Rfam assigns this 89-nucleotide RNA from Microbacterium sp. ZXX196 to the family "ZMP/ZTP riboswitch aptamer (pfl RNA motif)". Taxonomically the source falls in Microbacterium (Bacteria, Bacillati, Actinomycetota, Micrococcales).
RNA sequence: CGACAACGUCGCGACUGGCGUCUGAGGUGGGCCACCAUCGGGGAGCGACACCCAAGAACGGCAUUCGACCGCGCGCCUGGGCCGAAGCG
Numbered sequence: 001c002g003a004c005a006a007c008g009u010c011g012c013g014a015c016u017g018g019c020g021u022c023u024g025a026g027g028u029g030g031g032c033c034a035c036c037a038u039c040g041g042g043g044a045g046c047g048a049c050a051c052c053c054a055a056g057a058a059c060g061g062c063a064u065u066c067g068a069c070c071g072c073g074c075g076c077c078u079g080g081g082c083c084g085a086a087g088c089g
Stems, first nucleotide, its partner, number of pairs: 008049005015042002017077005027038004066084002069081002